This 133-nucleotide RNA sequence from Neotabrizicola shimadae belongs to the Rfam family "FMN riboswitch aptamer (RFN element)".

RNA sequence: CGGCAUUCUCAGGGCGGGGCGGAAUUCCCCACCGGCGGUCACAGCCCGCGAGCGCCUUGCCGCAAGGCAAGGGUCAGCAGAUCCGGUGGAACUCCGGGGCCGACGGUCACAGUCCGGAUGAAAGAGAAUGUGU
Numbered sequence: 001c002g003g004c005a006u007u008c009u010c011a012g013g014g015c016g017g018g019g020c021g022g023a024a025u026u027c028c029c030c031a032c033c034g035g036c037g038g039u040c041a042c043a044g045c046c047c048g049c050g051a052g053c054g055c056c057u058u059g060c061c062g063c064a065a066g067g068c069a070a071g072g073g074u075c076a077g078c079a080g081a082u083c084c085g086g087u088g089g090a091a092c093u094c095c096g097g098g099g100c101c102g103a104c105g106g107u108c109a110c111a112g113u114c115c116g117g118a119u120g121a122a123a124g125a126g127a128a129u130g131u132g133u
Base pairs, nucleotide, nucleotide: 003131004130005129006128007127008126009125010124017029018028019027031113032112033102034101035049036048037047038046044100045099052078053077082098083097084096085095086094104116105115106114